Rfam assigns this 134-nucleotide RNA to the family "Small nucleolar RNA U19". The family's RNA type in Rfam is H/ACA-box small nucleolar RNA. A search with the family's covariance model found it, with a score of 58 bits. The literature on the family includes a 2002 paper in Curr Biol by Marker et al., "Experimental RNomics: identification of 140 candidates for small non-messenger RNAs in the plant Arabidopsis thaliana".
RNA sequence: AGCAGGCUUAGUUAGGAGGCCUAAAUUAUCAUGGAUUUCAGUUCUUUACUAGAGCUGUUAUUUGAAGGUCUGUUUGGUUGGAUUGGUCUGCUCUUUCUUUCGUCAACCUUUCCUACAAACACCCUUAUACAUCU
Numbered sequence: 001a002g003c004a005g006g007c008u009u010a011g012u013u014a015g016g017a018g019g020c021c022u023a024a025a026u027u028a029u030c031a032u033g034g035a036u037u038u039c040a041g042u043u044c045u046u047u048a049c050u051a052g053a054g055c056u057g058u059u060a061u062u063u064g065a066a067g068g069u070c071u072g073u074u075u076g077g078u079u080g081g082a083u084u085g086g087u088c089u090g091c092u093c094u095u096u097c098u099u100u101c102g103u104c105a106a107c108c109u110u111u112c113c114u115a116c117a118a119a120c121a122c123c124c125u126u127a128u129a130c131a132u133c134u
Base pairs, nucleotide, nucleotide: 005020007018008017009016034059035058041055042054043053044052045051065126066125067124068123073119074118075117076116078115080113081112082111085108086107